[Rfam]
RNA sequence: UAGACACCUCGUUCGGUGAGGCGUCUUCACGGACACAGGCCACUGAUCCCAACCGUCGAGAGACGCUCCGGAUCAGGACACCUCUCCCCGGCCUAAGGGGUGAGGCCAAGUGGCUGCGCAGCAUCGCUACGCCGUGGAGUGCCAAAGCUCUUACGAGAGAGGUGGCCU
Numbered sequence: 001u002a003g004a005c006a007c008c009u010c011g012u013u014c015g016g017u018g019a020g021g022c023g024u025c026u027u028c029a030c031g032g033a034c035a036c037a038g039g040c041c042a043c044u045g046a047u048c049c050c051a052a053c054c055g056u057c058g059a060g061a062g063a064c065g066c067u068c069c070g071g072a073u074c075a076g077g078a079c080a081c082c083u084c085u086c087c088c089c090g091g092c093c094u095a096a097g098g099g100g101u102g103a104g105g106c107c108a109a110g111u112g113g114c115u116g117c118g119c120a121g122c123a124u125c126g127c128u129a130c131g132c133c134g135u136g137g138a139g140u141g142c143c144a145a146a147g148c149u150c151u152u153a154c155g156a157g158a159g160a161g162g163u164g165g166c167c168u
Stems, first nucleotide, its partner, number of pairs: 005164006011154002013096001015149003020143003025139008039114005045074005054065004081105004087099003116127003
Shown here is a 168-nucleotide RNA from Trebonia kvetii, a member of the family "M-box riboswitch aptamer (ykoK leader)". Lineage of the source: Bacteria > Bacillati > Actinomycetota > Streptosporangiales > Trebonia. The literature on the family includes a 2010 paper in RNA Biol by Ramesh and Winkler, "Magnesium-sensing riboswitches in bacteria". The family has 159 seed sequences and 1,095 matches in Rfam 15.1. Pairs were carried over by alignment from the consensus structure. About the family: M-box riboswitch, also know as ykoK leader is described as a metaloregulatory RNA that sense divalent metals and function as a genetic control element of genes related to divalent metal transport in bacteria. It was first reported upstream of the B.subtilis ykoK gene and genes with related functions in other bacteria.